This 90-nucleotide RNA sequence from Aquilegia coerulea belongs to the Rfam family "Small nucleolar RNA snoR26". Gene Ontology terms of the family: nucleolus and RNA processing. For this family Rfam cites "Multiple snoRNA gene clusters from Arabidopsis" (Brown et al., RNA, 2001). The match comes from Rfam's covariance-model search (87 bits). The family's RNA type in Rfam is C/D-box small nucleolar RNA.
RNA sequence: GCAGCAUCAAUGAUGUUUAUAUCCAAUCGUUAUCCUUGCACUUUGAUUGGCAGUGAAGAAAAACAUGGGGAAAUUAAGUCUGAGAUGCUG
Numbered sequence: 001g002c003a004g005c006a007u008c009a010a011u012g013a014u015g016u017u018u019a020u021a022u023c024c025a026a027u028c029g030u031u032a033u034c035c036u037u038g039c040a041c042u043u044u045g046a047u048u049g050g051c052a053g054u055g056a057a058g059a060a061a062a063a064c065a066u067g068g069g070g071a072a073a074u075u076a077a078g079u080c081u082g083a084g085a086u087g088c089u090g
Base pairs, nucleotide, nucleotide: 002090003089004088005087006086007085008084